The family of this 48-nucleotide sequence from Pseudomonas fluorescens is "Guanidine-II riboswitch aptamer (mini-ykkC)". The organism belongs to Pseudomonas fluorescens, within Bacteria. The base pairs follow the family's consensus structure, which is taken from published work. Gene Ontology term of the family: regulation of gene expression.
RNA sequence: CGUCGGGGACGACCCCGGCGCUCAUCGAAAAACUGCGGGACGGCCCGC
Dot-bracket structure: ((((((((....))))))))..............(((((....)))))